The family of this 186-nucleotide sequence from Melghirimyces thermohalophilus is "Lysine riboswitch aptamer".
[Rfam]
RNA sequence: AGGUGAGGUAGAGGAGCAGUGACGAUGAGUAACCGGCAGGAGGUUUGGGGAUAACCAUUGAUGGUCGGUGAAAGGCGGAACUGCCGAAACCUGUGGAUCUGUUUCCCCGAAGUCACGGGUUGGGCCCGUUCCCUAAGAGGGGCGGGACUGUCACGCGGAAUCCCCGUGUGGAGCGCUAUCUCGGAA
Number, nucleotide and partner (000 for none) at each position: 001a000002g000003g000004u000005g000006a181007g180008g179009u178010a177011g176012a000013g000014g000015a000016g084017c083018a082019g081020u080021g000022a000023c077024g076025a000026u000027g000028a000029g000030u000031a000032a069033c068034c067035g066036g065037c064038a000039g062040g000041a000042g000043g000044u000045u000046u000047g000048g000049g000050g000051a000052u000053a000054a000055c000056c000057a000058u000059u000060g000061a000062u039063g000064g037065u036066c035067g034068g033069u032070g000071a000072a000073a000074g000075g000076c024077g023078g000079a000080a020081c019082u018083g017084c016085c000086g000087a000088a121089a120090c119091c118092u117093g116094u115095g114096g113097a000098u111099c000100u000101g000102u000103u000104u000105c000106c000107c000108c000109g000110a000111a098112g000113u096114c095115a094116c093117g092118g091119g090120u089121u088122g149123g148124g000125c146126c145127c144128g143129u142130u141131c140132c139133c000134u000135a000136a000137g000138a000139g132140g131141g130142g129143c128144g127145g126146g125147a000148c123149u122150g000151u171152c170153a169154c168155g167156c166157g165158g000159a000160a000161u000162c000163c000164c000165c157166g156167u155168g154169u153170g152171g151172a000173g000174c000175g000176c011177u010178a009179u008180c007181u006182c000183g000184g000185a000186a000
Its family is annotated with lysine biosynthetic process in the Gene Ontology.